The family of this 163-nucleotide sequence from Agrilactobacillus composti is "M-box riboswitch aptamer (ykoK leader)". A search with the family's covariance model found it, with a score of 138 bits.
[Rfam]
RNA sequence: AAUAUGUCCCGUUAGGUGAGGCUCCUAUAUGAAAAUACGCUGUUGCUCAGAAACAUCGAGAGAUGCCAACGAGUCAACUGGAAUUGCCCAUGAAGGCUCUUUCUAAUACAGCUGAUAUCAUUCUACGUCAUAUAGUGCUAAAACUAAACGAUUGGGAUUUCUC
Numbered sequence: 001a002a003u004a005u006g007u008c009c010c011g012u013u014a015g016g017u018g019a020g021g022c023u024c025c026u027a028u029a030u031g032a033a034a035a036u037a038c039g040c041u042g043u044u045g046c047u048c049a050g051a052a053a054c055a056u057c058g059a060g061a062g063a064u065g066c067c068a069a070c071g072a073g074u075c076a077a078c079u080g081g082a083a084u085u086g087c088c089c090a091u092g093a094a095g096g097c098u099c100u101u102u103c104u105a106a107u108a109c110a111g112c113u114g115a116u117a118u119c120a121u122u123c124u125a126c127g128u129c130a131u132a133u134a135g136u137g138c139u140a141a142a143a144c145u146a147a148a149c150g151a152u153u154g155g156g157a158u159u160u161c162u163c
Stems, first nucleotide, its partner, number of pairs: 006158005011149002013094001015145003020139003025135008039112005045074004054065004080103004086097003114123002